About this RNA: The record is a 511-nucleotide RNA from Streptomyces xanthophaeus, which matches "Saccharopolyspora sRNA 350" in Rfam. On this family, see Liu et al., PLoS One 2013: "Prediction and characterization of small non-coding RNAs related to secondary metabolites in Saccharopolyspora erythraea". Rfam classes the family as an antisense RNA. NCBI's taxonomy places the organism under Bacteria, Actinomycetota, Kitasatosporales, Streptomycetaceae, Streptomyces. Pairs were carried over by alignment from the consensus structure, which was predicted with RNAfold.
[Rfam]
RNA sequence: GUGACCGUCCAGUCCCACGUGGCGUCGGCGUCCAGCAGGGCGUUCUCACCGAACUGGUCGCCGUCGGCCAGUACCGCGACGGCCACCUCGUCCCCGUACUUGCCGACGGAGGUCUGACGCACCCGGCCGUGGGCGAUCAGGUGGACCUGCUCCGCGGAGGUACCCCGCUCGGCCAGCACCUCGCCGGCACGGAAGUCGCGCUGGACGCACCGGUCGGCGACCGCGGUCAGUACGUCGACGUCGUCGAAGCCUUUCAGCAGGGCCAGUUCGCCGAGUUCGCGGGGGAUCACCCGGACGUUGCCGCCGUCCUGGACGAACUCGAUGCGGCCGUCGCCGACGGUGUAGCUCAGCCGACGGUUCACCCGGUAGGUGCCGCCCUUGGUCUCCACCCAGGGGAGCAUCCGCAGCAGCCAGCGGGAGGUGAUCUCCUGCAUCUGCGGGGCGGACUUGGUCGUGGUGGCAAGGUUGCGCGCGGCCGCCGUACCCAGGCUGGACUGCUUGGGCGGCUCCA
Numbered sequence: 001g002u003g004a005c006c007g008u009c010c011a012g013u014c015c016c017a018c019g020u021g022g023c024g025u026c027g028g029c030g031u032c033c034a035g036c037a038g039g040g041c042g043u044u045c046u047c048a049c050c051g052a053a054c055u056g057g058u059c060g061c062c063g064u065c066g067g068c069c070a071g072u073a074c075c076g077c078g079a080c081g082g083c084c085a086c087c088u089c090g091u092c093c094c095c096g097u098a099c100u101u102g103c104c105g106a107c108g109g110a111g112g113u114c115u116g117a118c119g120c121a122c123c124c125g126g127c128c129g130u131g132g133g134c135g136a137u138c139a140g141g142u143g144g145a146c147c148u149g150c151u152c153c154g155c156g157g158a159g160g161u162a163c164c165c166c167g168c169u170c171g172g173c174c175a176g177c178a179c180c181u182c183g184c185c186g187g188c189a190c191g192g193a194a195g196u197c198g199c200g201c202u203g204g205a206c207g208c209a210c211c212g213g214u215c216g217g218c219g220a221c222c223g224c225g226g227u228c229a230g231u232a233c234g235u236c237g238a239c240g241u242c243g244u245c246g247a248a249g250c251c252u253u254u255c256a257g258c259a260g261g262g263c264c265a266g267u268u269c270g271c272c273g274a275g276u277u278c279g280c281g282g283g284g285g286a287u288c289a290c291c292c293g294g295a296c297g298u299u300g301c302c303g304c305c306g307u308c309c310u311g312g313a314c315g316a317a318c319u320c321g322a323u324g325c326g327g328c329c330g331u332c333g334c335c336g337a338c339g340g341u342g343u344a345g346c347u348c349a350g351c352c353g354a355c356g357g358u359u360c361a362c363c364c365g366g367u368a369g370g371u372g373c374c375g376c377c378c379u380u381g382g383u384c385u386c387c388a389c390c391c392a393g394g395g396g397a398g399c400a401u402c403c404g405c406a407g408c409a410g411c412c413a414g415c416g417g418g419a420g421g422u423g424a425u426c427u428c429c430u431g432c433a434u435c436u437g438c439g440g441g442g443c444g445g446a447c448u449u450g451g452u453c454g455u456g457g458u459g460g461c462a463a464g465g466u467u468g469c470g471c472g473c474g475g476c477c478g479c480c481g482u483a484c485c486c487a488g489g490c491u492g493g494a495c496u497g498c499u500u501g502g503g504c505g506g507c508u509c510c511a
Stems, first nucleotide, its partner, number of pairs: 007389002011385002015382003019328002022325002025322004031316002036312001038310003047303001050300003055232001058229001060227005065105004075096002078093001081092003111222004122217002127212001129210002134203002140197001143196001150191001154188002156185002159182001160177002165172002234296003240290002243287003250282002253279001256277003260271001262269001329342004353377001355375003360372004391431007399423003403418001405416001407415001437476002440473001442471003446467001447465003451461002478509001480505003484502002486497003